RNA: DUF3800-VII RNA
RNA sequence: AGUCAGCAUGCGAUGGGUUAAGAGAGGGUGGCGAAAGCCAUCAAGCCGAAAGGCCCGGAUCCUCUCUCCAUGGGCUGGCCAGCGG
Numbered sequence: 001a002g003u004c005a006g007c008a009u010g011c012g013a014u015g016g017g018u019u020a021a022g023a024g025a026g027g028g029u030g031g032c033g034a035a036a037g038c039c040a041u042c043a044a045g046c047c048g049a050a051a052g053g054c055c056c057g058g059a060u061c062c063u064c065u066c067u068c069c070a071u072g073g074g075c076u077g078g079c080c081a082g083c084g085g
Stems, first nucleotide, its partner, number of pairs: 002079006011072001013071004021067006027042006045054003